[Rfam]
RNA: 6S / SsrS RNA
Organism: Metabacillus lacus
RNA sequence: UACAAGCUGCGUUGUGCGUUGACUGAUAAAGUUUUAACCUUUAAGCUGAAAUAGGGAGUUUUAUAUCGGGCUUUGAAUGUCAUGCCUCCUUGGCUGAGGACGACAUGAACAGUUCUGCAAACACCCACUUUAUGGAGUGUGUGGUAUUAAAACUCUAUUAUGUUUACGGCAAUUGCGGCCUUUAU
Numbered sequence: 001u002a003c004a005a006g007c008u009g010c011g012u013u014g015u016g017c018g019u020u021g022a023c024u025g026a027u028a029a030a031g032u033u034u035u036a037a038c039c040u041u042u043a044a045g046c047u048g049a050a051a052u053a054g055g056g057a058g059u060u061u062u063a064u065a066u067c068g069g070g071c072u073u074u075g076a077a078u079g080u081c082a083u084g085c086c087u088c089c090u091u092g093g094c095u096g097a098g099g100a101c102g103a104c105a106u107g108a109a110c111a112g113u114u115c116u117g118c119a120a121a122c123a124c125c126c127a128c129u130u131u132a133u134g135g136a137g138u139g140u141g142u143g144g145u146a147u148u149a150a151a152a153c154u155c156u157a158u159u160a161u162g163u164u165u166a167c168g169g170c171a172a173u174u175g176c177g178g179c180c181u182u183u184a185u
Base pairs, nucleotide, nucleotide: 002183004181006179007178008177009176010175011174012172013171014170015169017168018167019166031153032152033151034150035149036148037147038144039143054126055125056124058122059121060120061119065116068115069114070113071112072111079104080103085099086098087097088096